RNA sequence: GUGUGAGAGGGCGAUCUGGCUGCGACAUCUGUCACCCCGUUGAUCGCUAGGGUUGAUUCGGCUGAUCUGGCUGGCUAGGCGGGUGUCCCCUUCCUCCCUCACCGCUCCAUGUUUGUCCCUCCCGAAGCUGUGCGCUCGGUAGAAGAGGAUGACCUCCCGAUAGAAGAAGUACCAUUCUUCGGUCAAGGGUAUACCAGUAGCUGCGCUCCCCUGCUAGAACCUCCAAACAAGCUCAAGAGGUGUUUUUUGGUGUACUUGGGUGGUUUAAGGAACGAUUUGUUUCAUU
Numbered sequence: 001g002u003g004u005g006a007g008a009g010g011g012c013g014a015u016c017u018g019g020c021u022g023c024g025a026c027a028u029c030u031g032u033c034a035c036c037c038c039g040u041u042g043a044u045c046g047c048u049a050g051g052g053u054u055g056a057u058u059c060g061g062c063u064g065a066u067c068u069g070g071c072u073g074g075c076u077a078g079g080c081g082g083g084u085g086u087c088c089c090c091u092u093c094c095u096c097c098c099u100c101a102c103c104g105c106u107c108c109a110u111g112u113u114u115g116u117c118c119c120u121c122c123c124g125a126a127g128c129u130g131u132g133c134g135c136u137c138g139g140u141a142g143a144a145g146a147g148g149a150u151g152a153c154c155u156c157c158c159g160a161u162a163g164a165a166g167a168a169g170u171a172c173c174a175u176u177c178u179u180c181g182g183u184c185a186a187g188g189g190u191a192u193a194c195c196a197g198u199a200g201c202u203g204c205g206c207u208c209c210c211c212u213g214c215u216a217g218a219a220c221c222u223c224c225a226a227a228c229a230a231g232c233u234c235a236a237g238a239g240g241u242g243u244u245u246u247u248u249g250g251u252g253u254a255c256u257u258g259g260g261u262g263g264u265u266u267a268a269g270g271a272a273c274g275a276u277u278u279g280u281u282u283c284a285u286u
Base pairs, nucleotide, nucleotide: 001106003102004101005100006099009098010097011096013093014092018090019089024087025086026085027084028083029082030081031080032079033078035074036073037070038069039068042067043066044065045064046062047061048060117169119166120165121163122139123138124137125136127135128134140160142158148156149155201269202268206263207262209260210259211258213256221252223250224249227247229245230244231243
RNA: 7SK RNA